[Rfam]
RNA: MIR8007 microRNA precursor family
RNA sequence: AUGUGGCACUUUUCGGAUUUUGAGAUUUAAACAAGUCUAACUUUGACUGUAAAUUUUUCAUAGAUCUUUUAAACAUUUUGAAUUAUCAAUAUUUGUGAAUUAUAGUACUUUUUACGUAGUUUACAAAUAUACAAAUUUUAUUUCAAAAAAAAUUGAUCAUUUCAUGCGUAAAUUUCUAGCCAAACUUAAACUGUUUGACUCUCGAAAAAUGAAAAGUGCCACAUAA
Dot-bracket structure: (((((((((((((((..((((((((.(((((((.((.(((.((((.(((.(((((((.(((((((..((......(((((((.((........((((..((.(((.(((........)))))).))...)))).....)).)))))))......))..)))).))).).)))))).))).)))).))).))))))))).))))))))..)))))))))))))))..